[Rfam]
Nucleotides: 094
Stems, first nucleotide, its partner, number of pairs: 001093007010024004026064005070086002073083002
Number, partner (000 for none) and nucleotide at each position: 001093c002092c003091c004090c005089c006088u007087g008000u009000a010024g011023c012022u013021c014000a015000a016000u017000g018000g019000c020000a021013g022012a023011g024010c025000g026064u027063c028062c029061g030060g031000c032000u033000g034000u035000a036000g037000a038000a039000c040000g041000u042000c043000a044000u045000c046000a047000g048000u049000a050000u051000g052000u053000g054000c055000u056000g057000a058000u059000a060030c061029c062028g063027g064026a065000a066000g067000g068000u069000u070086g071085c072000a073083g074082g075000u076000u077000c078000a079000a080000a081000u082074c083073c084000a085071g086070c087007c088006g089005g090004g091003g092002g093001g094000a
Source information:
A member of the RNA family "tRNA" from Candidatus Undinarchaeum marinum, 94 nucleotides long. By type it is a transfer RNA. From the family's description: Transfer RNA (tRNA) molecules are approximately 80 nucleotides in length. The family's consensus secondary structure is taken from published work. A search with the family's covariance model found it, with a score of 54 bits.